[Rfam]
RNA sequence: UCGGACUGAAAAUGAUCUCAGGUGUCUGAAAGUGGUCUGAGGUCAGAUAACUGAGCCUAAAGUACUGCGGCACGUUAAGCUUAUCACCUGCUCACCAUUGGCAGAGCGAUAAAACCCAUGUGCCAACAAAA
Numbered sequence: 001u002c003g004g005a006c007u008g009a010a011a012a013u014g015a016u017c018u019c020a021g022g023u024g025u026c027u028g029a030a031a032g033u034g035g036u037c038u039g040a041g042g043u044c045a046g047a048u049a050a051c052u053g054a055g056c057c058u059a060a061a062g063u064a065c066u067g068c069g070g071c072a073c074g075u076u077a078a079g080c081u082u083a084u085c086a087c088c089u090g091c092u093c094a095c096c097a098u099u100g101g102c103a104g105a106g107c108g109a110u111a112a113a114a115c116c117c118a119u120g121u122g123c124c125a126a127c128a129a130a131a
Base pairs, nucleotide, nucleotide: 006053008051010048013045014044015043016042021037022036023035069124071122072121073120074119075118081112082111083110084109085108089103090102091101
The record is a 131-nucleotide RNA sequence from Labrus bergylta, which matches "Small nucleolar RNA ACA64" in Rfam. A search with the family's covariance model found it, with a score of 71 bits. By type it is an H/ACA-box small nucleolar RNA. Lineage of the source: Eukaryota > Actinopterygii > Osteoglossocephalai > Eupercaria > Labrus.